[Rfam]
RNA sequence: CUAUCAAUUCAAUAUGCUUUUCAUAUAAAUGCAGGAAUACGGUCUGCAAGUCUCUACCGAUUUACCGUAAAUAAAUCGACUAUGGAAAGCAGGGAACGGAAA
Numbered sequence: 001c002u003a004u005c006a007a008u009u010c011a012a013u014a015u016g017c018u019u020u021u022c023a024u025a026u027a028a029a030u031g032c033a034g035g036a037a038u039a040c041g042g043u044c045u046g047c048a049a050g051u052c053u054c055u056a057c058c059g060a061u062u063u064a065c066c067g068u069a070a071a072u073a074a075a076u077c078g079a080c081u082a083u084g085g086a087a088a089g090c091a092g093g094g095a096a097c098g099g100a101a102a
Base pairs, nucleotide, nucleotide: 018088019087020086021085022084023083024082025081030048031047032046033045034044035043058078059077060076061075062074063073064072

Rfam assigns this 102-nucleotide sequence from Virgibacillus sp. MSP4-1 to the family "Purine riboswitch aptamer". The family has 133 seed sequences and 4,097 matches in Rfam 15.1. It scores 79 bits against the family's covariance model. The family's consensus secondary structure is taken from published work.